[Rfam]
RNA sequence: CUCUCCGAAAUAGCUUUAGGGCUAGCCUCAAGUGAUGAUUAUUGGAGGUAGAGCACUGUUUGGACGAGGGGCCUCUCUCGGGUUACCGAAUUCAGACAAACUCCGAAUGCCAAUUAAUUUAACUUGGGAGUCAGAACAUGGGUGAUAAGGUCCGUGUUCGAAAGGGAAACAGCCCAGACCACCAGCUAAGGUCCCCAAAUAUAUGUUAAGUGGAAAAGGAUGUGGCGUUGCCCAGACAACUAGGAUGUUGGCUUAGAAGCAGCCAUCAUUUAAAGAGUGCGUAAUAGCUCACUAGUCGAGUGACACUGCGCCGAAAAUGUACCGGGGCUAAACAUAUUACCGAAGCUGUGGAUUGUCCUUCGGACAAUGGUAGGAGAGCGUUCUAAGGGCGUUGAAGCAUGAUCGCAAGGACAUGUGGAGCGUUUAGAAGUGAGAAU
Number, nucleotide and partner (000 for none) at each position: 001c378002u377003c376004u375005c374006c373007g000008a000009a000010a000011u024012a023013g022014c021015u020016u000017u000018a000019g000020g015021g014022c013023u012024a011025g000026c130027c128028u127029c126030a125031a124032g123033u122034g000035a000036u121037g118038a000039u116040u000041a114042u113043u112044g111045g110046a000047g000048g000049u000050a000051g104052a102053g101054c000055a000056c000057u098058g097059u096060u000061u094062g093063g092064a091065c000066g000067a000068g087069g086070g084071g083072c082073c081074u080075c000076u000077c000078u000079c000080g074081g073082g072083u071084u070085a000086c069087c068088g000089a000090a000091u064092u063093c062094a061095g000096a059097c058098a057099a000100a000101c053102u052103c000104c051105g000106a000107a000108u000109g000110c045111c044112a043113a042114u041115u000116a039117a000118u037119u000120u000121a036122a033123c032124u031125u030126g029127g028128g027129a000130g026131u000132c000133a000134g159135a158136a157137c156138a155139u154140g153141g152142g151143u150144g000145a000146u000147a000148a000149g000150g143151u142152c141153c140154g139155u138156g137157u136158u135159c134160g000161a000162a000163a000164g175165g174166g173167a000168a000169a000170c000171a000172g000173c166174c165175c164176a000177g000178a000179c351180c350181a349182c348183c000184a347185g346186c345187u000188a000189a000190g341191g340192u339193c000194c000195c000196c000197a000198a000199a338200u000201a337202u336203a335204u334205g333206u332207u000208a000209a000210g000211u000212g000213g000214a000215a000216a000217a000218g312219g311220a000221u000222g309223u308224g307225g306226c000227g304228u303229u302230g301231c300232c000233c000234a000235g000236a000237c000238a000239a296240c295241u294242a293243g292244g000245a269246u268247g267248u000249u000250g264251g263252c262253u000254u000255a000256g000257a000258a000259g000260c000261a000262g252263c251264c250265a000266u000267c247268a246269u245270u274271u000272a000273a000274a270275g290276a000277g000278u000279g288280c287281g000282u000283a000284a000285u000286a000287g280288c279289u000290c275291a000292c243293u242294a241295g240296u239297c000298g000299a000300g231301u230302g229303a228304c227305a000306c225307u224308g223309c222310g000311c219312c218313g000314a000315a000316a000317a000318u000319g000320u000321a000322c000323c000324g000325g000326g000327g000328c000329u000330a000331a000332a206333c205334a204335u203336a202337u201338u199339a192340c191341c190342g000343a000344a000345g186346c185347u184348g182349u181350g180351g179352a368353u367354u366355g365356u364357c363358c362359u000360u000361c000362g358363g357364a356365c355366a354367a353368u352369g000370g000371u000372a000373g006374g005375a004376g003377a002378g001379c432380g000381u429382u428383c427384u426385a425386a424387g423388g000389g421390c420391g000392u000393u000394g000395a000396a000397g416398c415399a414400u413401g412402a000403u410404c409405g000406c000407a000408a000409g404410g403411a000412c401413a400414u399415g398416u397417g000418g000419a000420g390421c389422g000423u387424u386425u385426a384427g383428a382429a381430g000431u000432g379433a000434g000435a000436a000437u000

The family of this 437-nucleotide part of an RNA from Staphylococcus saccharolyticus is "Bacterial large subunit ribosomal RNA". Its family is annotated with ribosome and structural constituent of ribosome in the Gene Ontology.